[Rfam]
This 234-nucleotide RNA sequence from Mesocricetus auratus belongs to the Rfam family "Small nucleolar RNA SNORD97".
The match comes from Rfam's covariance-model search (91 bits).
The family has 20 seed sequences and 639 matches in Rfam 15.1.
RNA sequence: UUGCCCGAUGAUUAUAAAAAGACGCGAAAGAGGACUUGAAGCUGGAUCUUUUCCUUUUUUCUCUUCUACUACUUUCUUUUCUCUAGUUUCCCUUUUCUCUGCUUUUUCUCUUUUCUCUCCUUUCCCCCCUUUUCUCUGCUUCUUUUUCUCUUCUCUCCUUUCUCUUUUCUCUGCUUCUUUUUCUCUUUGGAUAUCCAGCGUCCGAUGAGCGAAGAUUAUGAGAUAUGAGGGCAA
Numbered sequence: 001u002u003g004c005c006c007g008a009u010g011a012u013u014a015u016a017a018a019a020a021g022a023c024g025c026g027a028a029a030g031a032g033g034a035c036u037u038g039a040a041g042c043u044g045g046a047u048c049u050u051u052u053c054c055u056u057u058u059u060u061c062u063c064u065u066c067u068a069c070u071a072c073u074u075u076c077u078u079u080u081c082u083c084u085a086g087u088u089u090c091c092c093u094u095u096u097c098u099c100u101g102c103u104u105u106u107u108c109u110c111u112u113u114u115c116u117c118u119c120c121u122u123u124c125c126c127c128c129c130u131u132u133u134c135u136c137u138g139c140u141u142c143u144u145u146u147u148c149u150c151u152u153c154u155c156u157c158c159u160u161u162c163u164c165u166u167u168u169c170u171c172u173g174c175u176u177c178u179u180u181u182u183c184u185c186u187u188u189g190g191a192u193a194u195c196c197a198g199c200g201u202c203c204g205a206u207g208a209g210c211g212a213a214g215a216u217u218a219u220g221a222g223a224u225a226u227g228a229g230g231g232c233a234a
Stems, first nucleotide, its partner, number of pairs: 001234006031149004
Rfam links the family to the GO terms nucleolus and RNA processing. The literature on the family includes a 2003 paper in Nucleic Acids Res by Vitali et al., "Identification of 13 novel human modification guide RNAs". The family's consensus secondary structure was predicted with WAR.